RNA sequence: GAAUUUCGCAGCGGCUAUCCUCCUCCCAGCCAAUGCGAAUAUAGGCCGGUUCCAACCCUCCUCCCUGGAGCCGGUCCCACAUACAGCGCUCGCCGGAUCCUCCUCCCCCGGCGGGCGUUGUGC
Numbered sequence: 001g002a003a004u005u006u007c008g009c010a011g012c013g014g015c016u017a018u019c020c021u022c023c024u025c026c027c028a029g030c031c032a033a034u035g036c037g038a039a040u041a042u043a044g045g046c047c048g049g050u051u052c053c054a055a056c057c058c059u060c061c062u063c064c065c066u067g068g069a070g071c072c073g074g075u076c077c078c079a080c081a082u083a084c085a086g087c088g089c090u091c092g093c094c095g096g097a098u099c100c101u102c103c104u105c106c107c108c109c110g111g112c113g114g115g116c117g118u119u120g121u122g123c
Base pairs, nucleotide, nucleotide: 005039006038007037009035010034013031014030015029044076045075046074047073048072049071050070051069052068053067086118087117088116089115090114091113092112093111094110095109096108
Description:
The record is a 123-nucleotide sequence from Mesorhizobium denitrificans, which matches "Alphaproteobacterial ar14" in Rfam. Rfam describes the family as follows. Smr14C2 was renamed NfeR1 (Nodule Formation Efficiency RNA) highly expressed in salt stress and during the symbiotic interaction on legume roots. It is annotated as a small RNA. The pairing is the family consensus, mapped onto this sequence. Rfam links the family to the GO term biological process involved in symbiotic interaction.